[Rfam]
RNA sequence: AAAAAUGAUGAUUCUAUGCGCAGAAAUAAAAAUCAAAGUCGUACUACUAUGUAGAAUGAUGAUACUUGAUGUCAUCCUUGAACUGAUUUUUUUUUU
Numbered sequence: 001a002a003a004a005a006u007g008a009u010g011a012u013u014c015u016a017u018g019c020g021c022a023g024a025a026a027u028a029a030a031a032a033u034c035a036a037a038g039u040c041g042u043a044c045u046a047c048u049a050u051g052u053a054g055a056a057u058g059a060u061g062a063u064a065c066u067u068g069a070u071g072u073c074a075u076c077c078u079u080g081a082a083c084u085g086a087u088u089u090u091u092u093u094u095u096u
Stems, first nucleotide, its partner, number of pairs: 002093004
Overview:
The record is a 96-nucleotide RNA sequence from Plasmodium knowlesi, which matches "small nucleolar RNA snoR19" in Rfam. Rfam's curators put it in the seed alignment. The literature on the family includes a 2007 paper in RNA by Chakrabarti et al., "Structural RNAs of known and unknown function identified in malaria parasites by comparative genomics and RNA analysis". Rfam classes the family as a C/D-box small nucleolar RNA. Pairs were carried over by alignment from the consensus structure.